[Rfam]
RNA: Small nucleolar RNA ACA64
Organism: Bucco capensis
RNA sequence: AUAUAUAAAAUGGCUACAUAUAUGCAAUAUAUAUUGCAAUAACUGUGCCCACAGCAGAGGGAGCAUUAAACUCAUUGCCCACGGGAAAGUGUGGGGAAUGAUACCCAUGUUCCUAGAAUC
Numbered sequence: 001a002u003a004u005a006u007a008a009a010a011u012g013g014c015u016a017c018a019u020a021u022a023u024g025c026a027a028u029a030u031a032u033a034u035u036g037c038a039a040u041a042a043c044u045g046u047g048c049c050c051a052c053a054g055c056a057g058a059g060g061g062a063g064c065a066u067u068a069a070a071c072u073c074a075u076u077g078c079c080c081a082c083g084g085g086a087a088a089g090u091g092u093g094g095g096g097a098a099u100g101a102u103a104c105c106c107a108u109g110u111u112c113c114u115a116g117a118a119u120c
Stems, first nucleotide, its partner, number of pairs: 003046003010040002013037001018032004060113001062111005072101005080093003